[Rfam]
RNA sequence: AUGCUAUCAGGAGCAGUGUCUUCUAUAGUGG
Number, nucleotide and partner (000 for none) at each position: 001a000002u030003g029004c028005u027006a026007u025008c000009a024010g023011g022012a021013g020014c018015a000016g000017u000018g014019u000020c013021u012022u011023c010024u009025a007026u006027a005028g004029u003030g002031g000
The family of this 31-nucleotide RNA from Temnothorax curvispinosus is "Iron response element II". The source organism's lineage runs through Eukaryota, Hexapoda, Pterygota, Aculeata and Temnothorax. Rfam classes the family as a cis-regulatory element. From the family's description: IRE, TFRC, SLC40A1, SDHB, SLC11A2, CDC42BPA, ACO2, ALAS2_H.SAPIENS, CDC14A, EPAS1, ALAS2, qoxD, Hao1, NDUFS1, transferrin, Aconitate.